Shown here is a 133-nucleotide sequence from Ursus maritimus, a member of the family "Small nucleolar RNA SNORA9". A search with the family's covariance model found it, with a score of 107 bits. The family's consensus secondary structure was predicted with PFOLD. It is annotated as an H/ACA-box small nucleolar RNA. Taxonomically the source falls in Ursus (Eukaryota, Eumetazoa, Dipnotetrapodomorpha, Theria). Rfam describes the family as follows. ACA9 is a member of the H/ACA class of snoRNA that guide the sites of modification of uridines to pseudouridines.

RNA sequence: CUGCAAGCCCCCAGCAUGCUUGGGUCUGGGGUGCCCCCGUGCAUUCCUGCAGUGCUUGAAAGAACAUUUUGAAAUGGUUUGAGGCCUUGCCCUAUUCCAUCCAGAGCAAGGUUAUGAUUGUUUUCUUCCAUAU
Numbered sequence: 001c002u003g004c005a006a007g008c009c010c011c012c013a014g015c016a017u018g019c020u021u022g023g024g025u026c027u028g029g030g031g032u033g034c035c036c037c038c039g040u041g042c043a044u045u046c047c048u049g050c051a052g053u054g055c056u057u058g059a060a061a062g063a064a065c066a067u068u069u070u071g072a073a074a075u076g077g078u079u080u081g082a083g084g085c086c087u088u089g090c091c092c093u094a095u096u097c098c099a100u101c102c103a104g105a106g107c108a109a110g111g112u113u114a115u116g117a118u119u120g121u122u123u124u125c126u127u128c129c130a131u132a133u
Stems, first nucleotide, its partner, number of pairs: 004058005017043003022037003026033001071125004085111006092104002